[Rfam]
Shown here is a 46-nucleotide RNA sequence from Phycisphaerae bacterium RAS1, a member of the family "Acido-Lenti-1 RNA".
The organism belongs to Phycisphaerae, within Bacteria.
It scores 56 bits against the family's covariance model.
It is annotated as a small RNA.
Pairs were carried over by alignment from the consensus structure, which is taken from published work.

RNA sequence: CCCACGGCUCACGCCGUGGGCUUUAUUCUGUCGCCCUUCCAGGGCU
Numbered sequence: 001c002c003c004a005c006g007g008c009u010c011a012c013g014c015c016g017u018g019g020g021c022u023u024u025a026u027u028c029u030g031u032c033g034c035c036c037u038u039c040c041a042g043g044g045c046u
Base pairs, nucleotide, nucleotide: 001020002019003018004017005016006015007014008013033045034044035043036042037041